[Rfam]
UnaL2 LINE 3' element: a 56-nucleotide RNA sequence from Coregonus sp. 'balchen'.
Pairs were carried over by alignment from the consensus structure, which is taken from published work.

RNA sequence: UCCAUGACAUUCUGCACAAGUCGCUCUGGAUAAGAGCGUCUGCUAAAUGACGUAAA
Numbered sequence: 001u002c003c004a005u006g007a008c009a010u011u012c013u014g015c016a017c018a019a020g021u022c023g024c025u026c027u028g029g030a031u032a033a034g035a036g037c038g039u040c041u042g043c044u045a046a047a048u049g050a051c052g053u054a055a056a
Stems, first nucleotide, its partner, number of pairs: 013045001014043003022038006